[Rfam]
RNA sequence: GAGUUUAUUUCCGUGGCGAGGAUAACAAAAGGUAUCCGUAGCGAAAGCGAGUACCCCGCAGCUUGCAAGGGGGUCAGGUGUGAAAGCGCCUGUAGUCACGGGGAUAAGACCUGAAGCCGGUCGAUCUAGCCCUGGGCAGGGUGAAGUCUAGCGAAAGCUGGAUGGAAGCCCGUUACCGUUGCUGAGAUUCAAAUCGCUCAGGUGACCUGGGGCUAGGAGUGAAAAUGGAUUGACGACUAGAAUUAAUCGGGUUAAGUCGUCCUUCCUUCAACGCUAAUCGAGAUCGGCAAUAGCUGGUU
Numbered sequence: 001g002a003g004u005u006u007a008u009u010u011c012c013g014u015g016g017c018g019a020g021g022a023u024a025a026c027a028a029a030a031g032g033u034a035u036c037c038g039u040a041g042c043g044a045a046a047g048c049g050a051g052u053a054c055c056c057c058g059c060a061g062c063u064u065g066c067a068a069g070g071g072g073g074u075c076a077g078g079u080g081u082g083a084a085a086g087c088g089c090c091u092g093u094a095g096u097c098a099c100g101g102g103g104a105u106a107a108g109a110c111c112u113g114a115a116g117c118c119g120g121u122c123g124a125u126c127u128a129g130c131c132c133u134g135g136g137c138a139g140g141g142u143g144a145a146g147u148c149u150a151g152c153g154a155a156a157g158c159u160g161g162a163u164g165g166a167a168g169c170c171c172g173u174u175a176c177c178g179u180u181g182c183u184g185a186g187a188u189u190c191a192a193a194u195c196g197c198u199c200a201g202g203u204g205a206c207c208u209g210g211g212g213c214u215a216g217g218a219g220u221g222a223a224a225a226u227g228g229a230u231u232g233a234c235g236a237c238u239a240g241a242a243u244u245a246a247u248c249g250g251g252u253u254a255a256g257u258c259g260u261c262c263u264u265c266c267u268u269c270a271a272c273g274c275u276a277a278u279c280g281a282g283a284u285c286g287g288c289a290a291u292a293g294c295u296g297g298u299u
Base pairs, nucleotide, nucleotide: 005107006106007105008104009103010102011101012100013099014098015097016096017095020037021036022035023034026031041048042047054073055072056071057070061066077090078089079088080087110297111296113294117287118286119285120284121283122282126216127215128214129213130212131211132210133209134208135207136206137204139171140170141169142168146163147162148161149160150159151158152157176201178199181197182196184195185194218275219274220273

A member of the RNA family "Archaeal large subunit ribosomal RNA" from a Candidatus Aenigmatarchaeota archaeon, 299 nucleotides of a longer RNA. Pairs were carried over by alignment from the consensus structure, which is taken from published work. The family has 91 seed sequences and 2,955 matches in Rfam 15.1. Lineage of the source: Archaea > Nanobdellati > Candidatus Aenigmatarchaeota.